[Rfam]
RNA sequence: AAGGCACGCGCGGGAGAGUGUUGGGCUUCACCCAAAUCGUAGCUGGCUGGCCAGCGGUUCGAUCUGGGCGAGAAAACCCCACCGCCGAAGGAGCAACCGCCCCGGAAUCUCUCAGGCACCCAGGACCGCGCGGGGCCA
Number, nucleotide and partner (000 for none) at each position: 001a000002a000003g000004g000005c000006a000007c132008g131009c130010g129011c128012g127013g126014g000015a000016g000017a000018g000019u000020g082021u081022u000023g079024g078025g077026c000027u000028u000029c000030a000031c000032c000033c000034a000035a000036a000037u000038c000039g000040u000041a000042g000043c000044u000045g000046g000047c000048u000049g000050g000051c000052c000053a000054g000055c000056g000057g000058u000059u000060c000061g000062a000063u000064c000065u000066g000067g000068g000069c000070g000071a000072g000073a000074a000075a000076a000077c025078c024079c023080c000081a021082c020083c000084g117085c116086c115087g113088a112089a000090g000091g111092a110093g109094c000095a000096a000097c105098c104099g000100c000101c000102c000103c000104g098105g097106a000107a000108u000109c093110u092111c091112u088113c087114a000115g086116g085117c084118a000119c000120c000121c000122a000123g000124g000125a000126c013127c012128g011129c010130g009131c008132g007133g000134g000135g000136c000137c000138a000
Record summary
The family of this 138-nucleotide RNA from Sphingomonas turrisvirgatae is "Glycine riboswitch aptamer". A search with the family's covariance model found it, with a score of 53 bits.